This 419-nucleotide RNA sequence from Chlamydomonas moewusii belongs to the Rfam family "Group I catalytic intron".
A reference for the family is Cech (1990), "Self-splicing of group I introns", Annu Rev Biochem.
Its family is annotated with Group I intron splicing in the Gene Ontology.
It is one of the family's seed sequences.
RNA sequence: ACGUCGGGAUUUUAAAUAGUCCCCCUUUAUAGUGAUAUAAAGGUUCUCUUUUUAAGAGAAUAAGGAGCCAGAACGCCCGCGUUGUAAACAACGCGGGGCGUUCAGGUUAACCCUGCUUAUUUUAUAAGUGAGUUCCGAAAAAUUGGGUGAAUUGCCAAGGACGCUAAGUUAAAAGCUACUCGACUCGCUUAGCGAGUCGAGUAUUAAGCCUUUAAUACGCCAACUUGCAGCCAAGUCUAACGAAUUUUCGAAAAGGUAGUUAGAAAGGUUCAACGACUAGGGCUUGAGUACGAAAUAUCAAUAACAGCCCCACGAGCGCCCAACAACUUAGGAUUCUGUACGAAAAGUACUCGCCCGCUGCUUUGCCGCGGGCGAAGCAUAAGUUGAAGACAUAGUCUGAACUGUAAAGAAAUUUACAG
Numbered sequence: 001a002c003g004u005c006g007g008g009a010u011u012u013u014a015a016a017u018a019g020u021c022c023c024c025c026u027u028u029a030u031a032g033u034g035a036u037a038u039a040a041a042g043g044u045u046c047u048c049u050u051u052u053u054a055a056g057a058g059a060a061u062a063a064g065g066a067g068c069c070a071g072a073a074c075g076c077c078c079g080c081g082u083u084g085u086a087a088a089c090a091a092c093g094c095g096g097g098g099c100g101u102u103c104a105g106g107u108u109a110a111c112c113c114u115g116c117u118u119a120u121u122u123u124a125u126a127a128g129u130g131a132g133u134u135c136c137g138a139a140a141a142a143u144u145g146g147g148u149g150a151a152u153u154g155c156c157a158a159g160g161a162c163g164c165u166a167a168g169u170u171a172a173a174a175g176c177u178a179c180u181c182g183a184c185u186c187g188c189u190u191a192g193c194g195a196g197u198c199g200a201g202u203a204u205u206a207a208g209c210c211u212u213u214a215a216u217a218c219g220c221c222a223a224c225u226u227g228c229a230g231c232c233a234a235g236u237c238u239a240a241c242g243a244a245u246u247u248u249c250g251a252a253a254a255g256g257u258a259g260u261u262a263g264a265a266a267g268g269u270u271c272a273a274c275g276a277c278u279a280g281g282g283c284u285u286g287a288g289u290a291c292g293a294a295a296u297a298u299c300a301a302u303a304a305c306a307g308c309c310c311c312a313c314g315a316g317c318g319c320c321c322a323a324c325a326a327c328u329u330a331g332g333a334u335u336c337u338g339u340a341c342g343a344a345a346a347g348u349a350c351u352c353g354c355c356c357g358c359u360g361c362u363u364u365g366c367c368g369c370g371g372g373c374g375a376a377g378c379a380u381a382a383g384u385u386g387a388a389g390a391c392a393u394a395g396u397c398u399g400a401a402c403u404g405u406a407a408a409g410a411a412a413u414u415u416a417c418a419g
Base pairs, nucleotide, nucleotide: 006025007024008023012019013018143323144322145321146320148318149317153229154228156227157226158225159224163220164219167216230269231268236263243257245255246254247253273398275397276396277395278394279393326384327383328382329381330380332378334376404417405416406415407414408413
Dot-bracket structure: .....(((...((....))...))).....................................................................................................................[[[[.[[...((.((((...((..(................................................)..))...))))))((....(......(.(((.....))).).....)....))...(.(((((.....................................]].]]]]..(((((.(.(.........................................).).)))))........)))))).....(((((....)))))..